RNA sequence: AUUUGGUGGUGGCAUAACUCUACAUAAGUGGGUUGUGAUAGUUUGCUAUAUUUCAGUAAAAAUUUUCCGAAAACCCGCUUAUUUUGAGCGGGUUUUUUCAU
Numbered sequence: 001a002u003u004u005g006g007u008g009g010u011g012g013c014a015u016a017a018c019u020c021u022a023c024a025u026a027a028g029u030g031g032g033u034u035g036u037g038a039u040a041g042u043u044u045g046c047u048a049u050a051u052u053u054c055a056g057u058a059a060a061a062a063u064u065u066u067c068c069g070a071a072a073a074c075c076c077g078c079u080u081a082u083u084u085u086g087a088g089c090g091g092g093u094u095u096u097u098u099c100a101u
Base pairs, nucleotide, nucleotide: 009042010041012039014036015035016034017033018032020031021030022029023028072094073093074092075091076090077089078088079086
Rfam assigns this 101-nucleotide sequence from Thalassotalea piscium to the family "Tryptophan operon leader". The family's consensus secondary structure is taken from published work. Rfam links the family to the GO terms tryptophan biosynthetic process and transcriptional attenuation by ribosome.